[Rfam]
RNA: Manganese Mn2+ riboswitch aptamer (yybP-ykoY)
Organism: Herbaspirillum sp. meg3
RNA sequence: GCGCGGGUCAUUGGGGAGUAGUCGCCUUCCACCCUGAGGAGGGGCUUAUGUCAACAUACUUGAUCCACACGAUCAUGGCAUAAGCGGUCCUAAGCGCUUGACAAGACCUUUGACCACGUUGCCCUCCGGAAUGGCCGGGGAGAGGCGUGGUCAUUGUUUUCUGUCCGGCCAUGGAGACCC
Numbered sequence: 001g002c003g004c005g006g007g008u009c010a011u012u013g014g015g016g017a018g019u020a021g022u023c024g025c026c027u028u029c030c031a032c033c034c035u036g037a038g039g040a041g042g043g044g045c046u047u048a049u050g051u052c053a054a055c056a057u058a059c060u061u062g063a064u065c066c067a068c069a070c071g072a073u074c075a076u077g078g079c080a081u082a083a084g085c086g087g088u089c090c091u092a093a094g095c096g097c098u099u100g101a102c103a104a105g106a107c108c109u110u111u112g113a114c115c116a117c118g119u120u121g122c123c124c125u126c127c128g129g130a131a132u133g134g135c136c137g138g139g140g141a142g143a144g145g146c147g148u149g150g151u152c153a154u155u156g157u158u159u160u161c162u163g164u165c166c167g168g169c170c171a172u173g174g175a176g177a178c179c180c
Base pairs, nucleotide, nucleotide: 025042026041027040044085045084046083047082048081049080050079051078052077053076061075062074063073064072065071086179087178088177090174091173092172